Rfam assigns this 213-nucleotide sequence from Lactuca sativa to the family "Plant small nucleolar RNA U3". The match comes from Rfam's covariance-model search (174 bits). The family is grouped with related families in Rfam's "U3 clan". The literature on the family includes a 2010 paper in RNA Biol by Marz and Stadler, "Comparative analysis of eukaryotic U3 snoRNA". Rfam links the family to the GO terms nucleolus and RNA processing. Rfam describes the family as follows. Small nucleolar RNAs (snoRNAs) are involved in the processing and modification of rRNA in the nucleolus. There are two main classes of snoRNAs: the box C/D class, and the box H/ACA class. NCBI's taxonomy places the organism under Eukaryota, Streptophyta, asterids, Asteraceae, Lactuca. The base pairs follow the family's consensus structure, which is taken from published work.

[Rfam]
RNA sequence: ACGACCUUACUUGAACAGGAUCUGUUCUAUAUGCUCGUACCUCUGUAUUCUUGAUUCCUAAGAAGACAGAAACCCAUGUCUGGUUGAUGAAUCACGACCAUGUAGCCAGAGCGUGAUUAACAGAGCUUCAUGGUCUCGGCUAUGGCUCAGUAGAUGAUCGUUGCCAAUCCAUCUGAUGGGUCCUGGCAUGGCUACAUGGUUGUCUGACAGAUA
Numbered sequence: 001a002c003g004a005c006c007u008u009a010c011u012u013g014a015a016c017a018g019g020a021u022c023u024g025u026u027c028u029a030u031a032u033g034c035u036c037g038u039a040c041c042u043c044u045g046u047a048u049u050c051u052u053g054a055u056u057c058c059u060a061a062g063a064a065g066a067c068a069g070a071a072a073c074c075c076a077u078g079u080c081u082g083g084u085u086g087a088u089g090a091a092u093c094a095c096g097a098c099c100a101u102g103u104a105g106c107c108a109g110a111g112c113g114u115g116a117u118u119a120a121c122a123g124a125g126c127u128u129c130a131u132g133g134u135c136u137c138g139g140c141u142a143u144g145g146c147u148c149a150g151u152a153g154a155u156g157a158u159c160g161u162u163g164c165c166a167a168u169c170c171a172u173c174u175g176a177u178g179g180g181u182c183c184u185g186g187c188a189u190g191g192c193u194a195c196a197u198g199g200u201u202g203u204c205u206g207a208c209a210g211a212u213a
Stems, first nucleotide, its partner, number of pairs: 001038002003035001005033001007031001013027006043069004048064006078212005097200012110162004120151002123148004129144006164186003167181005